[Rfam]
RNA sequence: CCUAAUUACUCCUGUAAGUCGCUCUGGAUAAGAGCGUCUGCUAAAAGGUGAAAA
Numbered sequence: 001c002c003u004a005a006u007u008a009c010u011c012c013u014g015u016a017a018g019u020c021g022c023u024c025u026g027g028a029u030a031a032g033a034g035c036g037u038c039u040g041c042u043a044a045a046a047g048g049u050g051a052a053a054a
Stems, first nucleotide, its partner, number of pairs: 013043001014041003020036006
UnaL2 LINE 3' element: a 54-nucleotide sequence from Coregonus sp. 'balchen'. The eel long interspersed element (LINE) UnaL2 and its partner short interspersed element (SINE) share a conserved 3' tail containing a stem-loop that is critical for their retrotransposition. Presumably, the first step of retrotransposition is the recognition of their 3' tails by UnaL2-encoded reverse transcriptase. The solution structure of a 17-nucleotide RNA derived from the 3' tail of UnaL2 was determined by NMR. Rfam links the family to the GO term transposition, RNA-mediated.